[Rfam]
RNA: NiCo (Nickel/Cobalt) riboswitch aptamer
RNA sequence: ACAGUACAAACUGAGCAGGCAGCGAGCUUAUUCACCGGGCUCAUGGGGCCGGGCCGUUAGCGGCAGCAGAGAGCUGAAAGCAUCUGCGGGACAGUA
Numbered sequence: 001a002c003a004g005u006a007c008a009a010a011c012u013g014a015g016c017a018g019g020c021a022g023c024g025a026g027c028u029u030a031u032u033c034a035c036c037g038g039g040c041u042c043a044u045g046g047g048g049c050c051g052g053g054c055c056g057u058u059a060g061c062g063g064c065a066g067c068a069g070a071g072a073g074c075u076g077a078a079a080g081c082a083u084c085u086g087c088g089g090g091a092c093a094g095u096a
Stems, first nucleotide, its partner, number of pairs: 010095004016090001018050003022044001024042006053064004066087005